MIR8675 microRNA precursor family: a 95-nucleotide RNA from Gossypium anomalum. It scores 98 bits against the family's covariance model.
RNA sequence: CGUGACACUUUGAGAUUGUGCCACAUCAUCACUUGAAAAUUAAAAAAAUUAUAUAAAUUUUUAUGUGAUGAUGUGGUACAAUUUUAGAGUAUCAC
Numbered sequence: 001c002g003u004g005a006c007a008c009u010u011u012g013a014g015a016u017u018g019u020g021c022c023a024c025a026u027c028a029u030c031a032c033u034u035g036a037a038a039a040u041u042a043a044a045a046a047a048a049u050u051a052u053a054u055a056a057a058u059u060u061u062u063a064u065g066u067g068a069u070g071a072u073g074u075g076g077u078a079c080a081a082u083u084u085u086a087g088a089g090u091a092u093c094a095c
Base pairs, nucleotide, nucleotide: 003094004093005092007090008089009088012085013084014083015082016081017080018079019078020077021076022075023074024073025072026071027070028069029068030067031066032065034063035062036061037060038059039058040057041056